Shown here is a 99-nucleotide RNA sequence from Coptis chinensis, a member of the family "MIR2275 microRNA precursor family". Rfam links the family to the GO terms RISC complex and miRNA-mediated post-transcriptional gene silencing. The source organism's lineage runs through Eukaryota, Spermatophyta, Ranunculales, Coptidoideae and Coptis. It scores 73 bits against the family's covariance model.
[Rfam]
RNA sequence: UAUUUGAAUGUGAGAAUUGGAUGAAACCAAACUCUUUGCAUUGCUACAAUUCUUCGGUAGAUAAGGGUUUGGUUUCCUCCAAUAUCUCAUAUCCAAUAC
Numbered sequence: 001u002a003u004u005u006g007a008a009u010g011u012g013a014g015a016a017u018u019g020g021a022u023g024a025a026a027c028c029a030a031a032c033u034c035u036u037u038g039c040a041u042u043g044c045u046a047c048a049a050u051u052c053u054u055c056g057g058u059a060g061a062u063a064a065g066g067g068u069u070u071g072g073u074u075u076c077c078u079c080c081a082a083u084a085u086c087u088c089a090u091a092u093c094c095a096a097u098a099c
Stems, first nucleotide, its partner, number of pairs: 004096003008092001011089004016083006023076008032067004